[Rfam]
RNA sequence: CACACGGGUGGCAGCCGCUCUCAGAAAGCUUGGAGCGCCGCCCUUGA
Number, nucleotide and partner (000 for none) at each position: 001c000002a000003c000004a000005c000006g043007g042008g041009u040010g039011g038012c000013a000014g000015c000016c000017g000018c000019u035020c000021u033022c032023a031024g030025a000026a000027a000028g000029c000030u024031u023032g022033g021034a000035g019036c000037g000038c011039c010040g009041c008042c007043c006044u000045u000046g000047a000
Shown here is a 47-nucleotide RNA, a member of the family "Hepatitis C virus stem-loop I". The family's RNA type in Rfam is cis-regulatory element. It is one of the family's seed sequences. Its family is annotated with viral RNA genome replication in the Gene Ontology. A reference for the family is Pirakitikulr et al. (2016), "The Coding Region of the HCV Genome Contains a Network of Regulatory RNA Structures", Mol Cell. Pairs were carried over by alignment from the consensus structure, which was predicted with RNAfold.